Rfam assigns this 77-nucleotide sequence from Betta splendens to the family "mir-27 microRNA precursor family".
[Rfam]
RNA sequence: UGCGGCGGCAGGACUUAGCCCACAUGUGAACAGUUAGCGUCACGCCGUGUUCACAGUGGUUAAGUUCUGCCGCCACA
Numbered sequence: 001u002g003c004g005g006c007g008g009c010a011g012g013a014c015u016u017a018g019c020c021c022a023c024a025u026g027u028g029a030a031c032a033g034u035u036a037g038c039g040u041c042a043c044g045c046c047g048u049g050u051u052c053a054c055a056g057u058g059g060u061u062a063a064g065u066u067c068u069g070c071c072g073c074c075a076c077a
Stems, first nucleotide, its partner, number of pairs: 011067010026054007
Lineage of the source: Eukaryota > Neopterygii > Clupeocephala > Anabantiformes > Betta.